[Rfam]
RNA sequence: AUGCACUCGGCGAACGGUUUUCACCAUGAUCUGAGAGUUUCCGCCUUCUGAGAUCAUUGUGAAGGCCACUUGCCGUCUGACG
Numbered sequence: 001a002u003g004c005a006c007u008c009g010g011c012g013a014a015c016g017g018u019u020u021u022c023a024c025c026a027u028g029a030u031c032u033g034a035g036a037g038u039u040u041c042c043g044c045c046u047u048c049u050g051a052g053a054u055c056a057u058u059g060u061g062a063a064g065g066c067c068a069c070u071u072g073c074c075g076u077c078u079g080a081c082g
Stems, first nucleotide, its partner, number of pairs: 009074004016067009027056006034049003037044002
RNA: mir-81 microRNA precursor family
Organism: Angiostrongylus costaricensis